A member of the RNA family "Plastid-ycf3 group II-D1 intron" from Nicotiana attenuata, 46 nucleotides long. Its family is annotated with Group II intron splicing in the Gene Ontology. The literature on the family includes a 2023 paper in Plant Commun by Richter et al., "Retrograde signaling in plants: A critical review focusing on the GUN pathway and beyond". Rfam's curators write: Plastid rpl16 is a non-coding RNA (ncRNA) recognised in plastids. It was recognised in and intronic region of a ribosome rpl16 gene.
Nucleotides: 046
Base pairs, nucleotide, nucleotide: 010025011024012023013022034042
Number, partner (000 for none) and nucleotide at each position: 001000a002000u003000u004000c005000c006000u007000u008000c009000u010025g011024u012023c013022g014000u015000g016000u017000a018000u019000c020000c021000u022013c023012g024011a025010u026000u027000a028000a029000u030000g031000c032000a033000a034042c035000c036000c037000c038000a039000g040000a041000u042034g043000c044000g045000u046000u